Overview: The record is a 54-nucleotide RNA sequence from Coregonus sp. 'balchen', which matches "UnaL2 LINE 3' element" in Rfam. By type it is a cis-regulatory element. Rfam's curators write: The eel long interspersed element (LINE) UnaL2 and its partner short interspersed element (SINE) share a conserved 3' tail containing a stem-loop that is critical for their retrotransposition. The family's consensus secondary structure is taken from published work.
RNA sequence: UGCACUCACUUAUGUAUGUCGCUCUGGAUAAGAGCGUCUGCUAAAUUACUAAAA
Numbered sequence: 001u002g003c004a005c006u007c008a009c010u011u012a013u014g015u016a017u018g019u020c021g022c023u024c025u026g027g028a029u030a031a032g033a034g035c036g037u038c039u040g041c042u043a044a045a046u047u048a049c050u051a052a053a054a
Base pairs, nucleotide, nucleotide: 013043014041015040016039020036021035022034023033024032025031